This 134-nucleotide RNA sequence from Piliocolobus tephrosceles belongs to the Rfam family "U11 spliceosomal RNA". NCBI's taxonomy places the organism under Eukaryota, Chordata, Teleostomi, Boreoeutheria, Piliocolobus. For this family Rfam cites "Identification of an evolutionarily divergent U11 small nuclear ribonucleoprotein particle in Drosophila" (Schneider et al., Proc Natl Acad Sci U S A, 2004). Pairs were carried over by alignment from the consensus structure, which is taken from published work.

RNA sequence: AAAAAGGGCUUCUGUCUUGAGUGGCACACAUAGGACAACUGGAUUUCUCUUCAUGCAGAAUAAACAUCAAGAGAUUUUGGAAGCAUAAUUUUUUGGUAGUUGGGCAGCUGGUGAUCAUUGGUUCCAGCACCCUU
Numbered sequence: 001a002a003a004a005a006g007g008g009c010u011u012c013u014g015u016c017u018u019g020a021g022u023g024g025c026a027c028a029c030a031u032a033g034g035a036c037a038a039c040u041g042g043a044u045u046u047c048u049c050u051u052c053a054u055g056c057a058g059a060a061u062a063a064a065c066a067u068c069a070a071g072a073g074a075u076u077u078u079g080g081a082a083g084c085a086u087a088a089u090u091u092u093u094u095g096g097u098a099g100u101u102g103g104g105c106a107g108c109u110g111g112u113g114a115u116c117a118u119u120g121g122u123u124c125c126a127g128c129a130c131c132c133u134u
Base pairs, nucleotide, nucleotide: 008084009083010082011081012080013026014025015024016023027055028054032050033049034048037045038044056079057078058077059076060075061074102132103131104130107128108127109126110125111124113123114122115121116120